[Rfam]
RNA sequence: CAGUACACUCAUCCAUAAAGUAGGAAACACUACAGCGUUCAGUCCUAUCUAGUAGUGCUUUCUACUUUAUGGGUGGCUGCACUGC
Numbered sequence: 001c002a003g004u005a006c007a008c009u010c011a012u013c014c015a016u017a018a019a020g021u022a023g024g025a026a027a028c029a030c031u032a033c034a035g036c037g038u039u040c041a042g043u044c045c046u047a048u049c050u051a052g053u054a055g056u057g058c059u060u061u062c063u064a065c066u067u068u069a070u071g072g073g074u075g076g077c078u079g080c081a082c083u084g085c
Stems, first nucleotide, its partner, number of pairs: 014071010026059001028057006
Rfam assigns this 85-nucleotide RNA from Xenopus laevis to the family "mir-142 microRNA precursor family". On this family, see Linsen et al., BMC Genomics 2010: "Small RNA expression and strain specificity in the rat". The family has 37 seed sequences and 1,555 matches in Rfam 15.1. Taxonomically the source falls in Xenopus (Eukaryota, Deuterostomia, Craniata, Sarcopterygii). Rfam links the family to the GO terms RISC complex and miRNA-mediated post-transcriptional gene silencing. The family's consensus secondary structure was predicted with RNAalifold.